[Rfam]
RNA sequence: UGGCGCCCAUCGUGGGGCUCCUGGCAUGAAGGGCUCAAUGAGGGAGCCAUCCUGAGACACGCAGGUAAAAGUGAAAGUAAUAAUUUUGUGACCAGUGCUACGCGGGAGCCUGCCAUGCUGCUAGAGUCAUGGUAAGUGGACUGCGAUCCUUUCCCUUUUUUUCCGGCAUGGGUCAGGCAUUAAGUGAUCAUAAAUGCUUUGUGUCAGAUUUAAGUAAAGCUUUAAAGACAAAAGGGAUAAAGGCUAAAGAAAAAGAUUUGUUGCAGUACUUUCAAUUUAUUCAUAAGGUUUGCCCUU
Dot-bracket structure: .....((....(((..........)))...))((((.......))))...................................(((....((....(((..((.((.......)).))..)).)...))..)))....((.((............................))))......(((((.................................)).))).......((((.((..(((.(.........).)))......)).))))............(.((....)).).
RNA: Mason-Pfizer monkey virus packaging signal
Organism: Cavia porcellus